[Rfam]
RNA sequence: CUGCCUUAAACUAAUGAGUAAGGAAAACAAAGCGAGCGGUGAGAGCUGUUCGCGGCGCCAAGCCAUCUGCGCGUGAAUUUUUGGAGGGGUUAUAGGCUGGCUGAGUGCUGACGCUGCUUACUUUGCAGAACUCACUCGUGCGGGCCUCCC
Numbered sequence: 001c002u003g004c005c006u007u008a009a010a011c012u013a014a015u016g017a018g019u020a021a022g023g024a025a026a027a028c029a030a031a032g033c034g035a036g037c038g039g040u041g042a043g044a045g046c047u048g049u050u051c052g053c054g055g056c057g058c059c060a061a062g063c064c065a066u067c068u069g070c071g072c073g074u075g076a077a078u079u080u081u082u083g084g085a086g087g088g089g090u091u092a093u094a095g096g097c098u099g100g101c102u103g104a105g106u107g108c109u110g111a112c113g114c115u116g117c118u119u120a121c122u123u124u125g126c127a128g129a130a131c132u133c134a135c136u137c138g139u140g141c142g143g144g145c146c147u148c149c150c
Stems, first nucleotide, its partner, number of pairs: 004023005032053008054072001056071003088150002094147005100141001102138002105135003114128004
Dot-bracket structure: ...(((((..........)))))........((((((((......))))))))(.(((..........))))...............((....(((((.(.((.(((......((((.......))))....))).))..).))))).))
U12 minor spliceosomal RNA: a 150-nucleotide RNA sequence from Tripterygium wilfordii.
Clan: U2 clan.
The pairing is the family consensus, mapped onto this sequence.
Its family is annotated with U12 snRNP, mRNA branch site recognition and pre-mRNA branch point binding in the Gene Ontology.
A reference for the family is Otake et al. (2002), "The divergent U12-type spliceosome is required for pre-mRNA splicing and is essential for development in Drosophila", Mol Cell.